[Rfam]
RNA sequence: CUGAAUCACCGCGGGAGCUCGGGCCUACCGGGCUGAGAGGGCGACAGGACGGCGUCGCCGACCGCAUGAACCUGUCCGGGUAAUGCCGGCGUAGGGAGCGUGCCGCGUGAAGUCG
Number, nucleotide and partner (000 for none) at each position: 001c000002u000003g000004a000005a000006u000007c102008a101009c100010c000011g065012c064013g063014g062015g000016a000017g033018c032019u031020c030021g029022g000023g000024c000025c000026u000027a000028c000029c021030g020031g019032g018033c017034u000035g000036a000037g000038a000039g000040g059041g058042c057043g056044a055045c000046a000047g000048g000049a000050c000051g000052g000053c000054g000055u044056c043057g042058c041059c040060g000061a000062c014063c013064g012065c011066a000067u000068g000069a000070a000071c095072c094073u093074g092075u000076c089077c088078g087079g086080g000081u000082a000083a000084u000085g000086c079087c078088g077089g076090c000091g000092u074093a073094g072095g071096g000097a000098g000099c000100g009101u008102g007103c000104c000105g000106c000107g000108u000109g000110a000111a000112g000113u000114c000115g000
The family of this 115-nucleotide RNA sequence from Thermomonospora echinospora is "TPP riboswitch aptamer (THI element)".
A search with the family's covariance model found it, with a score of 62 bits.
Taxonomically the source falls in Thermomonospora (Bacteria, Actinomycetota, Streptosporangiales, Thermomonosporaceae).